This 118-nucleotide RNA sequence from Candidatus Glomeribacter gigasporarum belongs to the Rfam family "Group II catalytic intron D1-D4-2".

[Rfam]
RNA sequence: GAGGGAAGGCCCCUCGAGAUCGACUUGCAGGAGUAGGUCUCAAACCGCCACGAGCUGCAAAGGUUAAGAGCCUUGGUGGUGAGCGUCGUGGAAAAGGCAAAGAUGAACUUUGCGAGGU
Numbered sequence: 001g002a003g004g005g006a007a008g009g010c011c012c013c014u015c016g017a018g019a020u021c022g023a024c025u026u027g028c029a030g031g032a033g034u035a036g037g038u039c040u041c042a043a044a045c046c047g048c049c050a051c052g053a054g055c056u057g058c059a060a061a062g063g064u065u066a067a068g069a070g071c072c073u074u075g076g077u078g079g080u081g082a083g084c085g086u087c088g089u090g091g092a093a094a095a096g097g098c099a100a101a102g103a104u105g106a107a108c109u110u111u112g113c114g115a116g117g118u
Base pairs, nucleotide, nucleotide: 001015002014003013004012005011016041017040018039019038020037021036023034024033025032026031046117048091049090050089051088052087053086054080055079057077058076061073062072063071064070097113098112099111100110101109